[Rfam]
RNA sequence: AGUCUUCUGUAUCCGUGCUAAAAUUUCGUCACACACCAGACCACAAGUGCUGAUGAGACUCCCAAGAUAAGUGAAUCA
Numbered sequence: 001a002g003u004c005u006u007c008u009g010u011a012u013c014c015g016u017g018c019u020a021a022a023a024u025u026u027c028g029u030c031a032c033a034c035a036c037c038a039g040a041c042c043a044c045a046a047g048u049g050c051u052g053a054u055g056a057g058a059c060u061c062c063c064a065a066g067a068u069a070a071g072u073g074a075a076u077c078a
Base pairs, nucleotide, nucleotide: 002077005074006073008071010069011068012067013066016064017063021060024058025057026056027055028054029053030052

mir-3492 microRNA precursor family: a 78-nucleotide sequence from Schistosoma mansoni. It scores 71 bits against the family's covariance model. NCBI's taxonomy places the organism under Eukaryota, Eumetazoa, Bilateria, Rhabditophora, Schistosoma.